[Rfam]
RNA: MIR2617 microRNA precursor family
Organism: Medicago truncatula
Nucleotides: 078
Base pairs, nucleotide, nucleotide: 001078002077003076004075005074006073007072008071010070011069012068013067014066015065
Number, partner (000 for none) and nucleotide at each position: 001078u002077g003076u004075g005074a006073c007072a008071u009000g010070c011069c012068c013067g014066u015065u016000u017000g018000g019000g020000a021000a022000u023000u024000a025000c026000u027000c028000u029000g030000a031000u032000g033000c034000a035000u036000a037000u038000u039000u040000a041000u042000u043000u044000a045000u046000u047000a048000u049000u050000a051000a052000a053000u054000u055000g056000a057000u058000u059000u060000u061000g062000g063000g064000u065015a066014a067013c068012g069011g070010g071008g072007u073006g074005u075004u076003a077002c078001a